[Rfam]
RNA: Yersinia sRNA 224
RNA sequence: UGCGUUUUUGACAAAGCCAGCAGAGCGGUAGUAAUGGAUAGAUCGUAAAGACGCUGUAAAUACCUCCCUGUACGCUCGGCUUGCGCCAUCCAUGGCGCAAACGCUUU
Numbered sequence: 001u002g003c004g005u006u007u008u009u010g011a012c013a014a015a016g017c018c019a020g021c022a023g024a025g026c027g028g029u030a031g032u033a034a035u036g037g038a039u040a041g042a043u044c045g046u047a048a049a050g051a052c053g054c055u056g057u058a059a060a061u062a063c064c065u066c067c068c069u070g071u072a073c074g075c076u077c078g079g080c081u082u083g084c085g086c087c088a089u090c091c092a093u094g095g096c097g098c099a100a101a102c103g104c105u106u107u
Base pairs, nucleotide, nucleotide: 013107014106015105016104017103020026021025030076031075041066042065045063046062047061051057052056081100082099083098084097085096086095087094088093